[Rfam]
RNA sequence: GAAUAAUUUGCACCGAGUUGCUUUUUAAGCAAGCGGGGGAACCAAUUUUUGGGGUGAGUUGCUCUUUGCAAGGGGCUAUAACUUUCGGUCCUAACCCGUCAGCUAACCUCGUAGGUGUGGAGAGUGAGGCGUU
Numbered sequence: 001g002a003a004u005a006a007u008u009u010g011c012a013c014c015g016a017g018u019u020g021c022u023u024u025u026u027a028a029g030c031a032a033g034c035g036g037g038g039g040a041a042c043c044a045a046u047u048u049u050u051g052g053g054g055u056g057a058g059u060u061g062c063u064c065u066u067u068g069c070a071a072g073g074g075g076c077u078a079u080a081a082c083u084u085u086c087g088g089u090c091c092u093a094a095c096c097c098g099u100c101a102g103c104u105a106a107c108c109u110c111g112u113a114g115g116u117g118u119g120g121a122g123a124g125u126g127a128g129g130c131g132u133u
Stems, first nucleotide, its partner, number of pairs: 011117004018032006033112006043051002052097003060070003073091004